[Rfam]
RNA: Eukaryotic large subunit ribosomal RNA, nucleotides 1 to 367
RNA sequence: UUAUAUAUCAUCAUAUGGGACUAACCCCUGAAUUUAAGCAUAUUAAUUAGGGAAGGAAAAGAAACUAACAAGGAUUUUCUUAGUAGCGGCGAGCGAAAAGAAAACAGUUCAAUUAACGAUUUAAGUCCUUCUUAAAUGAGGCCAUUUACCCAUAGAGGGUGCCAGGCCCGUAUAACGUUAAUGAUUACUAGAUGAUGUUUCCAAAGAGUCGUGUUGCUUGAUAGUGCAGCACUAAGUGGGUGGUGGUAAACUCCAUCUAAAACUAAAUAUAACCAUGAGACCGAUAGUAAACAAGUACCGUGAGGGAAAGUUGAAAAGAACUCUGAAUAGAGAGUUAAACAGUACGUGAAACUGCUUAGAGGUUAAG
Number, nucleotide and partner (000 for none) at each position: 001u000002u000003a000004u000005a000006u000007a000008u000009c000010a000011u000012c000013a000014u000015a000016u000017g000018g000019g000020a000021c000022u000023a000024a000025c000026c052027c051028c050029u049030g000031a000032a000033u000034u000035u042036a041037a000038g000039c000040a000041u036042a035043u000044u000045a000046a000047u000048u000049a029050g028051g027052g026053a000054a000055g000056g000057a000058a000059a000060a000061g000062a000063a000064a000065c072066u071067a000068a000069c000070a000071a066072g065073g000074a000075u000076u103077u102078u101079c100080u099081u000082a000083g000084u000085a000086g094087c093088g000089g000090c000091g000092a000093g087094c086095g000096a000097a000098a000099a080100g079101a078102a077103a076104a000105c000106a264107g263108u262109u261110c000111a000112a000113u000114u000115a000116a000117c000118g201119a199120u000121u197122u000123a000124a186125g185126u184127c183128c000129u181130u180131c000132u148133u000134a147135a146136a145137u144138g000139a000140g000141g000142c000143c000144a137145u136146u135147u134148a132149c000150c000151c155152a000153u000154a000155g151156a000157g000158g168159g167160u000161g000162c000163c000164a000165g000166g000167c159168c158169c000170g000171u000172a000173u000174a000175a000176c000177g000178u000179u000180a130181a129182u000183g127184a126185u125186u124187a000188c000189u000190a000191g000192a000193u000194g000195a000196u000197g121198u000199u119200u000201c118202c000203a000204a000205a000206g000207a000208g000209u000210c000211g232212u231213g230214u229215u228216g227217c226218u000219u000220g000221a000222u000223a000224g000225u000226g217227c216228a215229g214230c213231a212232c211233u000234a000235a000236g000237u000238g258239g257240g256241u255242g254243g000244u000245g000246g000247u000248a000249a000250a000251c000252u000253c000254c242255a241256u240257c239258u238259a000260a000261a109262a108263c107264u106265a000266a000267a000268u000269a000270u000271a000272a000273c000274c000275a000276u000277g000278a000279g000280a000281c000282c000283g000284a000285u000286a000287g000288u000289a000290a000291a000292c000293a000294a000295g000296u000297a000298c305299c304300g000301u000302g000303a000304g299305g298306g000307a000308a000309a000310g000311u000312u000313g000314a000315a000316a000317a000318g000319a000320a000321c332322u331323c330324u329325g000326a000327a000328u000329a324330g323331a322332g321333a000334g000335u000336u000337a000338a000339a000340c000341a000342g000343u000344a000345c000346g000347u000348g000349a000350a000351a000352c000353u000354g000355c000356u000357u000358a000359g000360a000361g000362g000363u000364u000365a000366a000367g000